RNA: SAM/SAH riboswitch aptamer
Organism: Marivita geojedonensis
RNA sequence: UUCCCGUCACAACGGCUUCCUGACGUGACGGCAGACCCUAAUGGAGCA
Numbered sequence: 001u002u003c004c005c006g007u008c009a010c011a012a013c014g015g016c017u018u019c020c021u022g023a024c025g026u027g028a029c030g031g032c033a034g035a036c037c038c039u040a041a042u043g044g045a046g047c048a
Stems, first nucleotide, its partner, number of pairs: 004031007013022002015047003019044002